[Rfam]
RNA sequence: CUGUAAAAAGGGCAUACCCCAUGAAAGCGGGGGACGCAAAGUCAUCGGUCUACGGGGCGAAAGCCAUAGGACGGCAGGGCUGCCAGG
Numbered sequence: 001c002u003g004u005a006a007a008a009a010g011g012g013c014a015u016a017c018c019c020c021a022u023g024a025a026a027g028c029g030g031g032g033g034a035c036g037c038a039a040a041g042u043c044a045u046c047g048g049u050c051u052a053c054g055g056g057g058c059g060a061a062a063g064c065c066a067u068a069g070g071a072c073g074g075c076a077g078g079g080c081u082g083c084c085a086g087g
Stems, first nucleotide, its partner, number of pairs: 012037002017032004022027001040081004045077001047075001048072003056065003
The family of this 87-nucleotide sequence from Nitrosospira sp. Nsp14 is "c-di-GMP-I riboswitch aptamer".
The base pairs follow the family's consensus structure, which is taken from published work.
The organism belongs to Nitrosospira, within Bacteria.